Source information: Shown here is a 343-nucleotide RNA from Erythrobacter longus, a member of the family "Alphaproteobacteria transfer-messenger RNA". Rfam classes the family as a non-coding RNA gene. A search with the family's covariance model found it, with a score of 231 bits.

RNA sequence: UCACUUCAAAUUCAUGAAUUGCACGCUAUAUCAGUCCUGUCAGCUUGUCUGACUAUGGCGAUAAAUUGCUGCGUGCAAUAGGUACAACGGACCCGGGGGCAGUACCCGGCGGCUCCACCAUAAGACCCUGUAUUUGGGGUGUUUUGACGGGGCCGAACUAGGAUCGACGUGGACUGAAAAGCGUAGUUUUUGCCCGGGCUGAAAACCCCGUAAAACUGUUCACAACUCAUAAGUGCAAACGAUAACGAAGCACUCGCAAUCGCUGCGUAACCUGACGGCCUAACGGCCUGAUCUUACAAAGCCUAUGCGCGGUUGGACCCACCGGGCAACAGAAGUGGAUUCC
Numbered sequence: 001u002c003a004c005u006u007c008a009a010a011u012u013c014a015u016g017a018a019u020u021g022c023a024c025g026c027u028a029u030a031u032c033a034g035u036c037c038u039g040u041c042a043g044c045u046u047g048u049c050u051g052a053c054u055a056u057g058g059c060g061a062u063a064a065a066u067u068g069c070u071g072c073g074u075g076c077a078a079u080a081g082g083u084a085c086a087a088c089g090g091a092c093c094c095g096g097g098g099g100c101a102g103u104a105c106c107c108g109g110c111g112g113c114u115c116c117a118c119c120a121u122a123a124g125a126c127c128c129u130g131u132a133u134u135u136g137g138g139g140u141g142u143u144u145u146g147a148c149g150g151g152g153c154c155g156a157a158c159u160a161g162g163a164u165c166g167a168c169g170u171g172g173a174c175u176g177a178a179a180a181g182c183g184u185a186g187u188u189u190u191u192g193c194c195c196g197g198g199c200u201g202a203a204a205a206c207c208c209c210g211u212a213a214a215a216c217u218g219u220u221c222a223c224a225a226c227u228c229a230u231a232a233g234u235g236c237a238a239a240c241g242a243u244a245a246c247g248a249a250g251c252a253c254u255c256g257c258a259a260u261c262g263c264u265g266c267g268u269a270a271c272c273u274g275a276c277g278g279c280c281u282a283a284c285g286g287c288c289u290g291a292u293c294u295u296a297c298a299a300a301g302c303c304u305a306u307g308c309g310c311g312g313u314u315g316g317a318c319c320c321a322c323c324g325g326g327c328a329a330c331a332g333a334a335g336u337g338g339a340u341u342c343c
Base pairs, nucleotide, nucleotide: 039053040052041051042050043049057194058193059192060191061190068187069186070185071184072183073182074181083173085171087170088169089168093109094108095107096106097105110155111154112153113152114151115150116149195210196209197208198207200222201221202220204219310324311323312322313321315341316340318338319337